Notes
The record is a 488-nucleotide RNA sequence from Actinomadura darangshiensis, which matches "Saccharopolyspora sRNA 350" in Rfam. By type it is an antisense RNA. For this family Rfam cites "Prediction and characterization of small non-coding RNAs related to secondary metabolites in Saccharopolyspora erythraea" (Liu et al., PLoS One, 2013). It scores 87 bits against the family's covariance model. Gene Ontology term of the family: regulation of secondary metabolite biosynthetic process.
[Rfam]
RNA sequence: GAACGUGUGCGGCCACUCCGCGGACGUGUCCAGCAGCGCCGUGUCGCCGAAGAACCGGCCGUCCGCGUGGACGCCGAUCAGGGAGCCGGCGUCGUACUCGCCCGGUCCGACCUCCUCGACCUUGCCGUGCGCGAUGAGGUGGACGGCGUCGAGCGGCCGGCCCGCCUCCGCGAUCGUCUCGCCGGGGGCGUACUCGCGCUGCUCGAACCGCGCGGCGAGACCGUCCAGGAGCGCGGGGUCGGCCAGGCCGCGCAGCGGCGGCAGCUCGGCCAGCUCCGGCGGGACGACCCUGACGUCGGCGCCGUCGUUGAGGAACGUCACCAGCCCGUCGCCGAGCUGGUAGGUGAGCCUGCGGUUCACCCGGUAGGUGCCGGCGUCCGCCCGCACCCACGGCAGCUGCGCCAUCAGCCACCGCGGGGUGAUGCCCCGCAUCUGCGGGACGGACUUGGUCGUCGUCGCGAGGUUGCGUGCGGCCCGCGUGCCGAGGG
Numbered sequence: 001g002a003a004c005g006u007g008u009g010c011g012g013c014c015a016c017u018c019c020g021c022g023g024a025c026g027u028g029u030c031c032a033g034c035a036g037c038g039c040c041g042u043g044u045c046g047c048c049g050a051a052g053a054a055c056c057g058g059c060c061g062u063c064c065g066c067g068u069g070g071a072c073g074c075c076g077a078u079c080a081g082g083g084a085g086c087c088g089g090c091g092u093c094g095u096a097c098u099c100g101c102c103c104g105g106u107c108c109g110a111c112c113u114c115c116u117c118g119a120c121c122u123u124g125c126c127g128u129g130c131g132c133g134a135u136g137a138g139g140u141g142g143a144c145g146g147c148g149u150c151g152a153g154c155g156g157c158c159g160g161c162c163c164g165c166c167u168c169c170g171c172g173a174u175c176g177u178c179u180c181g182c183c184g185g186g187g188g189c190g191u192a193c194u195c196g197c198g199c200u201g202c203u204c205g206a207a208c209c210g211c212g213c214g215g216c217g218a219g220a221c222c223g224u225c226c227a228g229g230a231g232c233g234c235g236g237g238g239u240c241g242g243c244c245a246g247g248c249c250g251c252g253c254a255g256c257g258g259c260g261g262c263a264g265c266u267c268g269g270c271c272a273g274c275u276c277c278g279g280c281g282g283g284a285c286g287a288c289c290c291u292g293a294c295g296u297c298g299g300c301g302c303c304g305u306c307g308u309u310g311a312g313g314a315a316c317g318u319c320a321c322c323a324g325c326c327c328g329u330c331g332c333c334g335a336g337c338u339g340g341u342a343g344g345u346g347a348g349c350c351u352g353c354g355g356u357u358c359a360c361c362c363g364g365u366a367g368g369u370g371c372c373g374g375c376g377u378c379c380g381c382c383c384g385c386a387c388c389c390a391c392g393g394c395a396g397c398u399g400c401g402c403c404a405u406c407a408g409c410c411a412c413c414g415c416g417g418g419g420u421g422a423u424g425c426c427c428c429g430c431a432u433c434u435g436c437g438g439g440a441c442g443g444a445c446u447u448g449g450u451c452g453u454c455g456u457c458g459c460g461a462g463g464u465u466g467c468g469u470g471c472g473g474c475c476c477g478c479g480u481g482c483c484g485a486g487g488g
Stems, first nucleotide, its partner, number of pairs: 007387006014380001016324002020321001023319005029313002034310005040304001043303001045301006052232001055229002057225003061221002063109001065107001073101001075100003080095001082093002115219004120215002124211002127208002129204001131202003136197001138195001141194002147190002154185001155183003158176002163172003233294001234292002238288004243283001247280004252276001254275003259268002325340002328337001350376001353373003358370004389429001392426004397421001398419001400416003435474002438471001440469003444465001445463003449459002